Rfam assigns this 80-nucleotide RNA from Salvelinus namaycush to the family "Vault RNA".
It scores 35 bits against the family's covariance model.
About the family: This family of RNAs are found as part of the enigmatic vault ribonucleoprotein complex. The complex consists of a major vault protein (MVP), two minor vault proteins (VPARP and TEP1), and several small untranslated RNA molecules. It has been suggested that the vault complex is involved in drug resistance.
The source organism's lineage runs through Eukaryota, Deuterostomia, Craniata, Teleostomi and Salvelinus.
RNA sequence: ACGCCAGUUUAGCUGAGUGGUUUCUUCUUAUGGGCAUAUACCUUGAGGUAUCAAACCGCAGGCCGUUGCCUGGUGUUUUU
Numbered sequence: 001a002c003g004c005c006a007g008u009u010u011a012g013c014u015g016a017g018u019g020g021u022u023u024c025u026u027c028u029u030a031u032g033g034g035c036a037u038a039u040a041c042c043u044u045g046a047g048g049u050a051u052c053a054a055a056c057c058g059c060a061g062g063c064c065g066u067u068g069c070c071u072g073g074u075g076u077u078u079u080u
Base pairs, nucleotide, nucleotide: 002075003074004073005072006071007070012063013062014061017059018058019057020056029050030049031048